[Rfam]
RNA: mir-24 microRNA precursor family
RNA sequence: CCCUCCCGUGCCUACUGAACUGGUAUCAGUGUUUGACCUGAAAACUGGCUCAGUUCAGCAGGAACAGGAGUG
Numbered sequence: 001c002c003c004u005c006c007c008g009u010g011c012c013u014a015c016u017g018a019a020c021u022g023g024u025a026u027c028a029g030u031g032u033u034u035g036a037c038c039u040g041a042a043a044a045c046u047g048g049c050u051c052a053g054u055u056c057a058g059c060a061g062g063a064a065c066a067g068g069a070g071u072g
Base pairs, nucleotide, nucleotide: 003070004069005068006067008065009064011062012061013060015058016057017056018055019054020053021052022051023050026048027047028046029045030044